[Rfam]
RNA: Pseudomonas sRNA P26
RNA sequence: AAUCUACAGAUUCGCCUGAAAAGGCAAUGGCUGGUGAUUUAAACGUCACCGGCCU
Numbered sequence: 001a002a003u004c005u006a007c008a009g010a011u012u013c014g015c016c017u018g019a020a021a022a023g024g025c026a027a028u029g030g031c032u033g034g035u036g037a038u039u040u041a042a043a044c045g046u047c048a049c050c051g052g053c054c055u
Stems, first nucleotide, its partner, number of pairs: 014025003029054010